[Rfam]
RNA sequence: AAAUUUUGUUUUUAAUAAUGAGGCCAAAAUCAUAGUGAACCUAUGGUUAUAAAUCAUCAAAUUGACGGGAAUCCCCUAAAGCAAUCUUAACCAAGUAAGUAUGGUAACAUAACUUAUGGCACAGGUAAUGACUCGUGGUAUGGUAAAAUCAAGAUUUAUAAUUCAAUGGGCAAUCCGCAGCCAAGUACCUUAUAAUAAACUAAUAACGGUAUGCAGUUCAUCGACUAAACGGUGAUUGGUGUUAUAAACACAAUGCUUAAGAUAUAGUCAAACCCCACCACCCGAUACCAGGGG
Numbered sequence: 001a002a003a004u005u006u007u008g009u010u011u012u013u014a015a016u017a018a019u020g021a022g023g024c025c026a027a028a029a030u031c032a033u034a035g036u037g038a039a040c041c042u043a044u045g046g047u048u049a050u051a052a053a054u055c056a057u058c059a060a061a062u063u064g065a066c067g068g069g070a071a072u073c074c075c076c077u078a079a080a081g082c083a084a085u086c087u088u089a090a091c092c093a094a095g096u097a098a099g100u101a102u103g104g105u106a107a108c109a110u111a112a113c114u115u116a117u118g119g120c121a122c123a124g125g126u127a128a129u130g131a132c133u134c135g136u137g138g139u140a141u142g143g144u145a146a147a148a149u150c151a152a153g154a155u156u157u158a159u160a161a162u163u164c165a166a167u168g169g170g171c172a173a174u175c176c177g178c179a180g181c182c183a184a185g186u187a188c189c190u191u192a193u194a195a196u197a198a199a200c201u202a203a204u205a206a207c208g209g210u211a212u213g214c215a216g217u218u219c220a221u222c223g224a225c226u227a228a229a230c231g232g233u234g235a236u237u238g239g240u241g242u243u244a245u246a247a248a249c250a251c252a253a254u255g256c257u258u259a260a261g262a263u264a265u266a267g268u269c270a271a272a273c274c275c276c277a278c279c280a281c282c283c284g285a286u287a288c289c290a291g292g293g294g
Stems, first nucleotide, its partner, number of pairs: 005028004010023004032042001052237005058231001063179002066177004074170003180217002185212004191205003221270001223269005239256005245250001278294001

The family of this 294-nucleotide RNA sequence from Tuber melanosporum is "Group I catalytic intron". The organism belongs to Tuber, within Eukaryota. Its family is annotated with Group I intron splicing in the Gene Ontology. The match comes from Rfam's covariance-model search (74 bits). Group I catalytic introns are large self-splicing ribozymes. The family's consensus secondary structure is taken from published work. Rfam 15.1 lists 5,602 matches to the family in 1,395 species.